[Rfam]
RNA sequence: GUGAAAUGAUGACAAAGUUUAUCCAUUCUCUGAGAUCACUGUACAUUAACCUUCUUGUAGCACUAUGUUCCUAUUUUAGGAAUUCCGUGCUGCAUAGGCUCCAAAUGCCCAGCAGUCUUGCAGUGUUCUACUGUAGACCGUUGGUGUGGAUGGUAGCAUUUAGGAAGGAAUGGAUGGUGUCAGCAGAGGUGGAACCUCAUCCAGUGGAGGUCUUCUCUUGCCAAGAUGAAUAAUGGGAGUCUGAUCAC
Number, nucleotide and partner (000 for none) at each position: 001g000002u000003g000004a000005a000006a000007u000008g000009a000010u247011g246012a245013c000014a000015a000016a000017g240018u239019u238020u237021a000022u000023c000024c000025a231026u230027u229028c228029u000030c225031u224032g000033a000034g221035a000036u000037c000038a000039c183040u182041g181042u000043a000044c179045a178046u177047u176048a175049a000050c173051c172052u170053u169054c168055u167056u166057g000058u163059a091060g090061c089062a088063c087064u000065a000066u000067g083068u082069u081070c080071c079072u078073a000074u000075u000076u000077u000078a072079g071080g070081a069082a068083u067084u000085c000086c000087g063088u062089g061090c060091u059092g000093c000094a161095u000096a159097g000098g157099c156100u155101c000102c000103a000104a000105a000106u000107g147108c146109c144110c000111a000112g141113c140114a000115g138116u137117c136118u000119u135120g134121c133122a132123g131124u130125g129126u000127u000128c000129u125130a124131c123132u122133g121134u120135a119136g117137a116138c115139c000140g113141u112142u000143g000144g109145u000146g108147u107148g000149g000150a000151u000152g000153g000154u000155a100156g099157c098158a000159u096160u000161u094162a000163g058164g000165a000166a056167g055168g054169a053170a052171u000172g051173g050174a000175u048176g047177g046178u045179g044180u000181c041182a040183g039184c000185a000186g219187a218188g217189g216190u000191g214192g213193a000194a000195c210196c209197u208198c207199a000200u000201c000202c000203a000204g000205u000206g000207g198208a197209g196210g195211u000212c000213u192214u191215c000216u189217c188218u187219u186220g000221c034222c000223a000224a031225g030226a000227u000228g028229a027230a026231u025232a000233a000234u000235g000236g000237g020238a019239g018240u017241c000242u000243g000244a000245u012246c011247a010248c000
This 248-nucleotide RNA from Sarcophilus harrisii belongs to the Rfam family "Small nucleolar RNA SNORD17". Taxonomically the source falls in Sarcophilus (Eukaryota, Metazoa, Mammalia, Dasyuridae). Rfam classes the family as a C/D-box small nucleolar RNA. Rfam describes the family as follows. The snoRNA HBI-43 belongs to the C/D family of snoRNAs, guiding 2'O-ribose methylation at position U3797 of the 28S rRNA. Pseudouridylation in position U3797 is predicted to be guided by the H/ACA snoRNA ACA48.